[Rfam]
RNA: Mu-gpT-DE RNA
RNA sequence: CCCUGACAGCCGCAUUGGGCGGCUGACACUAGCCACGACAGGAGUUCCACAUG
Numbered sequence: 001c002c003c004u005g006a007c008a009g010c011c012g013c014a015u016u017g018g019g020c021g022g023c024u025g026a027c028a029c030u031a032g033c034c035a036c037g038a039c040a041g042g043a044g045u046u047c048c049a050c051a052u053g
Stems, first nucleotide, its partner, number of pairs: 002042004007025005